A member of the RNA family "mir-1204 microRNA precursor family" from Otolemur garnettii, 67 nucleotides long. The base pairs follow the family's consensus structure, which was predicted with RNAalifold. Lineage of the source: Eukaryota > Gnathostomata > Boreoeutheria > Primates > Otolemur.

[Rfam]
RNA sequence: AUCUCGUGGCCUGGUCUCCACUAUUUGAGAUAAGUUACAUCUUGGAGGUGAGGAUGUGCCUCGUGGC
Numbered sequence: 001a002u003c004u005c006g007u008g009g010c011c012u013g014g015u016c017u018c019c020a021c022u023a024u025u026u027g028a029g030a031u032a033a034g035u036u037a038c039a040u041c042u043u044g045g046a047g048g049u050g051a052g053g054a055u056g057u058g059c060c061u062c063g064u065g066g067c
Stems, first nucleotide, its partner, number of pairs: 002066002005063002008060003014055004019050004024046008
Dot-bracket structure: .((.((.(((...((((.((((.((((((((.......)))))))))))).))))..))).)).)).